Rfam assigns this 223-nucleotide sequence from Paenibacillus albidus to the family "T-box leader". It is annotated as a cis-regulatory leader. Lineage of the source: Bacteria > Bacillota > Bacilli > Caryophanales > Paenibacillus.
[Rfam]
RNA sequence: AUUCAAUCGAUGAUCGGGAGAGUAGUUAUCUCGGAUUCAGUCCACAGCAAGCCGGGUAAGUGAGAGCCGGUACGAAUCCUGUAAUGAAGCGCACCCGGGAGAUGGACUUCUGAACAGCCCUCUUAGGAAGUCCCGGCUGAAGACCGUUAACCUUGUGAGGUGGCUAAACCUUCCGUUUAGCAACGAGAGUGGUACCGCGAGCGCAUAAGCCCUCGUCUCUUUG
Numbered sequence: 001a002u003u004c005a006a007u008c009g010a011u012g013a014u015c016g017g018g019a020g021a022g023u024a025g026u027u028a029u030c031u032c033g034g035a036u037u038c039a040g041u042c043c044a045c046a047g048c049a050a051g052c053c054g055g056g057u058a059a060g061u062g063a064g065a066g067c068c069g070g071u072a073c074g075a076a077u078c079c080u081g082u083a084a085u086g087a088a089g090c091g092c093a094c095c096c097g098g099g100a101g102a103u104g105g106a107c108u109u110c111u112g113a114a115c116a117g118c119c120c121u122c123u124u125a126g127g128a129a130g131u132c133c134c135g136g137c138u139g140a141a142g143a144c145c146g147u148u149a150a151c152c153u154u155g156u157g158a159g160g161u162g163g164c165u166a167a168a169c170c171u172u173c174c175g176u177u178u179a180g181c182a183a184c185g186a187g188a189g190u191g192g193u194a195c196c197g198c199g200a201g202c203g204c205a206u207a208a209g210c211c212c213u214c215g216u217c218u219c220u221u222u223g
Base pairs, nucleotide, nucleotide: 007102008101015097016096017095018094025085026084027083028082029081040073041072051071052070053069054068055067105132106131107130108129109128110127111126134146135145136144163181164180165179166178167177168176169175186220187219188218189217197216198215199214200213201212